Rfam assigns this 80-nucleotide sequence from Vitis vinifera to the family "Small nucleolar RNA Z159/U59". Pairs were carried over by alignment from the consensus structure, which was predicted with PFOLD.
RNA sequence: CUCUCUAAGGAUGAUUACAAGAAAACUUUCUUCCGAGGUGUUCCAUGCGGAAAAUUUGUGGAGACCUGAACUGAAGAGCG
Numbered sequence: 001c002u003c004u005c006u007a008a009g010g011a012u013g014a015u016u017a018c019a020a021g022a023a024a025a026c027u028u029u030c031u032u033c034c035g036a037g038g039u040g041u042u043c044c045a046u047g048c049g050g051a052a053a054a055u056u057u058g059u060g061g062a063g064a065c066c067u068g069a070a071c072u073g074a075a076g077a078g079c080g
Stems, first nucleotide, its partner, number of pairs: 003078004
Record summary
The match comes from Rfam's covariance-model search (44 bits). The source organism's lineage runs through Eukaryota, Streptophytina, Euphyllophyta, Spermatophyta and Vitis. It is annotated as a C/D-box small nucleolar RNA.